[Rfam]
RNA sequence: GCCGAGCUCAGUAGUGUGGGCUUAUAACUCAAGUGGGGGCAUCAAUGUGGUGGAAUGUUGGGCUGUCUCAGAUGGUUGGGCUUGGUGUGCUAAUUUCUGGCCUUCCCUAUCCAAGCACAGAGUUGGUUCAUGGUGCCCAAUCGUAAGGAUGGGUGUCUUGGUUCCUAAAGCGGGGUGGACUGCGUGAUGUGCUAAUUUCUGGCCUGCCCUAUCCAAGAACAGAGUUGGUUCAUGGUGUCCAAUCGAAAGGAUGGGUGUCUUGAAUCCUAAAGCGGGGUGGACUGCGUGAGGCUGGUUUCACAGAGCAACGAAUAGCUCCCGCUCUGUGCAGUGGAAGGAUAACAGGCUGGUGCUUGUCAAGUCCAGUAAUGCCUGAUGGGCUGCUCCGAUUAAAACCACCACUUUU
Dot-bracket structure: ((((((((((......)))))))....(((....))))))...((.(((((((..((((((((.((.(((...(((.((((((((.(.(.((....(((((((..((..((((.(((((((((.((((((.((((((((.((..........................................................................................................)).)))))))).))))))(....).(((((....(.(((....(((......)))....))).)..))))).)))))))))..)))).)).....)))))))))).).))))))))......)))...))))).))).))).))...))))))).)).
Numbered sequence: 001g002c003c004g005a006g007c008u009c010a011g012u013a014g015u016g017u018g019g020g021c022u023u024a025u026a027a028c029u030c031a032a033g034u035g036g037g038g039g040c041a042u043c044a045a046u047g048u049g050g051u052g053g054a055a056u057g058u059u060g061g062g063c064u065g066u067c068u069c070a071g072a073u074g075g076u077u078g079g080g081c082u083u084g085g086u087g088u089g090c091u092a093a094u095u096u097c098u099g100g101c102c103u104u105c106c107c108u109a110u111c112c113a114a115g116c117a118c119a120g121a122g123u124u125g126g127u128u129c130a131u132g133g134u135g136c137c138c139a140a141u142c143g144u145a146a147g148g149a150u151g152g153g154u155g156u157c158u159u160g161g162u163u164c165c166u167a168a169a170g171c172g173g174g175g176u177g178g179a180c181u182g183c184g185u186g187a188u189g190u191g192c193u194a195a196u197u198u199c200u201g202g203c204c205u206g207c208c209c210u211a212u213c214c215a216a217g218a219a220c221a222g223a224g225u226u227g228g229u230u231c232a233u234g235g236u237g238u239c240c241a242a243u244c245g246a247a248a249g250g251a252u253g254g255g256u257g258u259c260u261u262g263a264a265u266c267c268u269a270a271a272g273c274g275g276g277g278u279g280g281a282c283u284g285c286g287u288g289a290g291g292c293u294g295g296u297u298u299c300a301c302a303g304a305g306c307a308a309c310g311a312a313u314a315g316c317u318c319c320c321g322c323u324c325u326g327u328g329c330a331g332u333g334g335a336a337g338g339a340u341a342a343c344a345g346g347c348u349g350g351u352g353c354u355u356g357u358c359a360a361g362u363c364c365a366g367u368a369a370u371g372c373c374u375g376a377u378g379g380g381c382u383g384c385u386c387c388g389a390u391u392a393a394a395a396c397c398a399c400c401a402c403u404u405u406u
Stems, first nucleotide, its partner, number of pairs: 001040003004023007028037003044405002047402007056392002058389003061385003065381002068379003074373003078364008087355001089353001091352002097350007106338002110335004115329009125266006132259008141250002267272001274319005283312001285310003292303003

The record is a 406-nucleotide sequence from Capsicum annuum, which matches "Plant signal recognition particle RNA" in Rfam. The match comes from Rfam's covariance-model search (227 bits). The literature on the family includes a 2002 paper in Curr Opin Struct Biol by Wild et al., "Towards the structure of the mammalian signal recognition particle".